[Rfam]
RNA sequence: GGUUGGGUAAGCGCUGCUUGCUUUCAAGAUUGUAGGCUUUUAGGGUGAAAAGCC
Numbered sequence: 001g002g003u004u005g006g007g008u009a010a011g012c013g014c015u016g017c018u019u020g021c022u023u024u025c026a027a028g029a030u031u032g033u034a035g036g037c038u039u040u041u042a043g044g045g046u047g048a049a050a051a052g053c054c
Stems, first nucleotide, its partner, number of pairs: 003027003006022006035054007